SAM riboswitch aptamer (S box leader): a 108-nucleotide sequence from Clostridium kluyveri. The literature on the family includes a 2003 paper in Nat Struct Biol by Winkler et al., "An mRNA structure that controls gene expression by binding S-adenosylmethionine". The organism belongs to Clostridium kluyveri, within Bacteria. The family has 457 seed sequences and 9,625 matches in Rfam 15.1.
RNA sequence: UUCUUAUCAAGAGCGGCGGAGGGAUAGGCCCUAUGAAGUCCGACAACCGACAUUUUGUGCAUCGGUGUCAAUUCCUACAGAGUGUGUUAAUACUCUGAAAGAUAAGAA
Dot-bracket structure: ((((((((....(.(((...(((.[[[[)))......))))((((.((((...........))))))))...(]]]]((((((........))))))..)))))))))